A member of the RNA family "Ribosomal protein L20 leader" from Anaerobacterium chartisolvens, 141 nucleotides long.
RNA sequence: CGUGUAAAGAAGGAGUUAUCCACUUCUCACCUUGCGGAUUAGAUUUGUAAGGUUAAUAAUAGGCUUAUUAAGCGAAUUUGUGUAUGCUUAUGGAUAUUAUUUCAAGUGGAUUGGUUCUUCAAUCCACUUUUUUAUUUUGUU
Numbered sequence: 001c002g003u004g005u006a007a008a009g010a011a012g013g014a015g016u017u018a019u020c021c022a023c024u025u026c027u028c029a030c031c032u033u034g035c036g037g038a039u040u041a042g043a044u045u046u047g048u049a050a051g052g053u054u055a056a057u058a059a060u061a062g063g064c065u066u067a068u069u070a071a072g073c074g075a076a077u078u079u080g081u082g083u084a085u086g087c088u089u090a091u092g093g094a095u096a097u098u099a100u101u102u103c104a105a106g107u108g109g110a111u112u113g114g115u116u117c118u119u120c121a122a123u124c125c126a127c128u129u130u131u132u133u134a135u136u137u138u139g140u141u
Stems, first nucleotide, its partner, number of pairs: 011027006029053003034048005105128010
It scores 61 bits against the family's covariance model. The family's consensus secondary structure was predicted with CMfinder. Gene Ontology term of the family: regulation of gene expression. For this family Rfam cites "Diverse mechanisms for regulating ribosomal protein synthesis in Escherichia coli" (Zengel and Lindahl, Prog Nucleic Acid Res Mol Biol, 1994). The source organism's lineage runs through Bacteria, Bacillati, Bacillota, Clostridia and Anaerobacterium.